The record is a 342-nucleotide RNA from Clostridium acetobutylicum, which matches "Bacterial RNase P class A" in Rfam. Lineage of the source: Bacteria > Bacillati > Bacillota > Clostridia > Clostridium acetobutylicum. The family's RNA type in Rfam is ribozyme. The sequence is in the family's curated seed alignment. About the family: Ribonuclease P (RNase P) is a ubiquitous endoribonuclease, found in archaea, bacteria and eukarya as well as chloroplasts and mitochondria. Its best characterised activity is the generation of mature 5'-ends of tRNAs by cleaving the 5'-leader elements of precursor-tRNAs. Cellular RNase Ps are ribonucleoproteins. RNA from bacterial RNase Ps retains its catalytic activity in the absence of the protein subunit, i.e. it is a ribozyme.
[Rfam]
RNA sequence: CGAGUAAGCCAGACAAUCGCUGCUGCAAUUUGCAGGAGAGGAAAGUCCGAGCUCCAUAGGGCAGGGUGCCGGGUAACUCCCGGUCAAGGCGACUUGAAGGAAAGUGCAACAGAGAUAUACCGCCAUUUUAUAAUGGUAAGGGUGGAAAGGCGAGGUAAGAGCUCACCAGCGCAUUGGCGACUUUGCGGCUAUGUAAACCCCAUCUGGAGCAAGAUCAAAUAGGGAAGCGUUUUGGAGUGGCCCGCUCUGCUUCCGGGUAGCAUCGCUUGAAUCUUAUGGUAACAUAAGGUCUAGAUAGAUGAUUGUCGAAUACAGAACUCGGCUUACAGGUUUAGUCGUCCA
Numbered sequence: 001c002g003a004g005u006a007a008g009c010c011a012g013a014c015a016a017u018c019g020c021u022g023c024u025g026c027a028a029u030u031u032g033c034a035g036g037a038g039a040g041g042a043a044a045g046u047c048c049g050a051g052c053u054c055c056a057u058a059g060g061g062c063a064g065g066g067u068g069c070c071g072g073g074u075a076a077c078u079c080c081c082g083g084u085c086a087a088g089g090c091g092a093c094u095u096g097a098a099g100g101a102a103a104g105u106g107c108a109a110c111a112g113a114g115a116u117a118u119a120c121c122g123c124c125a126u127u128u129u130a131u132a133a134u135g136g137u138a139a140g141g142g143u144g145g146a147a148a149g150g151c152g153a154g155g156u157a158a159g160a161g162c163u164c165a166c167c168a169g170c171g172c173a174u175u176g177g178c179g180a181c182u183u184u185g186c187g188g189c190u191a192u193g194u195a196a197a198c199c200c201c202a203u204c205u206g207g208a209g210c211a212a213g214a215u216c217a218a219a220u221a222g223g224g225a226a227g228c229g230u231u232u233u234g235g236a237g238u239g240g241c242c243c244g245c246u247c248u249g250c251u252u253c254c255g256g257g258u259a260g261c262a263u264c265g266c267u268u269g270a271a272u273c274u275u276a277u278g279g280u281a282a283c284a285u286a287a288g289g290u291c292u293a294g295a296u297a298g299a300u301g302a303u304u305g306u307c308g309a310a311u312a313c314a315g316a317a318c319u320c321g322g323c324u325u326a327c328a329g330g331u332u333u334a335g336u337c338g339u340c341c342a
Stems, first nucleotide, its partner, number of pairs: 001338003005334006012307007020038002023035005043325003047322005052209004059243004064205005069083005084098001085096004099200002104198002106194003120141002122137006149167002152164003169189001170187004176181001213264003216260001223254006234248005271290008